[Rfam]
RNA: tRNA
RNA sequence: CGGGAUGUGGCGCAGCUUGGUAGCGCACUAGCAUGGGGUGCUAGGGGUCGCAGGUUCAAGUCCUGUCAUCCCGA
Numbered sequence: 001c002g003g004g005a006u007g008u009g010g011c012g013c014a015g016c017u018u019g020g021u022a023g024c025g026c027a028c029u030a031g032c033a034u035g036g037g038g039u040g041c042u043a044g045g046g047g048u049c050g051c052a053g054g055u056u057c058a059a060g061u062c063c064u065g066u067c068a069u070c071c072c073g074a
Stems, first nucleotide, its partner, number of pairs: 001073007010026004028044005050066005